Shown here is a 185-nucleotide RNA sequence from Anopheles stephensi, a member of the family "drz-agam-2-2 ribozyme".
RNA sequence: ACUAUUAACCACUCUGUUAAUGCGGUAGGGGAUCCGAGACUCCUUUCGGGGUUACACUCAACUUCUAUUCCGUCACGUCCUCGUCGUACAGAGUGGUAACUUUCCCCACCACAUAUCCAAGCUUGGGUACACGGGCCUGUCCCAACCUCUUGGGCGGAUGGUGGAGAAAGGCUAAACAGGAGGGG
Numbered sequence: 001a002c003u004a005u006u007a008a009c010c011a012c013u014c015u016g017u018u019a020a021u022g023c024g025g026u027a028g029g030g031g032a033u034c035c036g037a038g039a040c041u042c043c044u045u046u047c048g049g050g051g052u053u054a055c056a057c058u059c060a061a062c063u064u065c066u067a068u069u070c071c072g073u074c075a076c077g078u079c080c081u082c083g084u085c086g087u088a089c090a091g092a093g094u095g096g097u098a099a100c101u102u103u104c105c106c107c108a109c110c111a112c113a114u115a116u117c118c119a120a121g122c123u124u125g126g127g128u129a130c131a132c133g134g135g136c137c138u139g140u141c142c143c144a145a146c147c148u149c150u151u152g153g154g155c156g157g158a159u160g161g162u163g164g165a166g167a168a169a170g171g172c173u174a175a176a177c178a179g180g181a182g183g184g185g
Stems, first nucleotide, its partner, number of pairs: 011094007025059001027058002030055001032053001034049004063185004068181002071179001075087003079096002100170005107163004115159004123145005147154002